[Rfam]
RNA sequence: UGCCUUCUGUCGUGUAUUUCCGAUUAAUGCAGCCUCAUAUGCUUCAA
Numbered sequence: 001u002g003c004c005u006u007c008u009g010u011c012g013u014g015u016a017u018u019u020c021c022g023a024u025u026a027a028u029g030c031a032g033c034c035u036c037a038u039a040u041g042c043u044u045c046a047a
Stems, first nucleotide, its partner, number of pairs: 009024004031043003

A member of the RNA family "Plastid-ycf3 group II-D1 intron" from Medicago radiata, 47 nucleotides long. Rfam 15.1 lists 1,488 matches to the family in 559 species. Plastid rpl16 is a non-coding RNA (ncRNA) recognised in plastids. It was recognised in and intronic region of a ribosome rpl16 gene. Pairs were carried over by alignment from the consensus structure, which was predicted with LocARNA. Gene Ontology term of the family: Group II intron splicing. The source organism's lineage runs through Eukaryota, Mesangiospermae, fabids, Fabaceae and Medicago. The literature on the family includes a 2023 paper in Plant Commun by Richter et al., "Retrograde signaling in plants: A critical review focusing on the GUN pathway and beyond".